Description
A member of the RNA family "Antisense RNA which regulates isiA expression" from Musa balbisiana, 189 nucleotides long. The organism belongs to Musa, within Eukaryota. Pairs were carried over by alignment from the consensus structure, which was predicted with PFOLD. A search with the family's covariance model found it, with a score of 134 bits. On this family, see Duhring et al., Proc Natl Acad Sci U S A 2006: "An internal antisense RNA regulates expression of the photosynthesis gene isiA".
RNA sequence: AAUAACCAAAUAUGACACUUGGGCUAAGGGUCAGUGUUAAUUUUUCCCUUACAUCUCCCCCCCCAGGGCCCCAGGUAUCAUAUAUGCCCCCAAAAAAACAGCCCUUGAGCACUAGAAGAAAAGCACCCUGACCAUAACAAAUGAAGUGAAUAACCAAAAAAUGGUAGGCAUUUUAUUGCUAUCUUUCAU
Dot-bracket structure: ................................................................................................................................................((.((...(.(((..................))).).)).))...